Y RNA: a 111-nucleotide RNA sequence from Theropithecus gelada. Y RNAs are components of the Ro ribonucleoprotein particle (Ro RNP), in association with Ro60 and La proteins. The Y RNAs and Ro60 and La proteins are well conserved, but the function of the Ro RNP is not known. In humans the RNA component can be one of four small RNAs -- hY1, hY3, hY4 and hY5. These small RNAs are predicted to fold into a conserved secondary structure containing three stem structures. The largest of the four, hY1, contains an additional hairpin. This family includes a significant number of annotated pseudogenes and the model is expected to discriminate poorly between real and Y RNA related pseudogenes. A search with the family's covariance model found it, with a score of 59 bits. Taxonomically the source falls in Theropithecus (Eukaryota, Deuterostomia, Sarcopterygii, Euarchontoglires). The family's consensus secondary structure is taken from published work.

RNA sequence: GGUUGGUCUGAAGGUAGUGAGUUAUCUUAAUUGAUUGUUCACAGUCAGUUACAGAUCGAAAUCCUUAUUCUACUCUUUGUCCACUUCUCACUACUGCACUUGACUAAAAAA
Numbered sequence: 001g002g003u004u005g006g007u008c009u010g011a012a013g014g015u016a017g018u019g020a021g022u023u024a025u026c027u028u029a030a031u032u033g034a035u036u037g038u039u040c041a042c043a044g045u046c047a048g049u050u051a052c053a054g055a056u057c058g059a060a061a062u063c064c065u066u067a068u069u070c071u072a073c074u075c076u077u078u079g080u081c082c083a084c085u086u087c088u089c090a091c092u093a094c095u096g097c098a099c100u101u102g103a104c105u106a107a108a109a110a111a
Stems, first nucleotide, its partner, number of pairs: 003107006010101002014097002016092006044074001047071002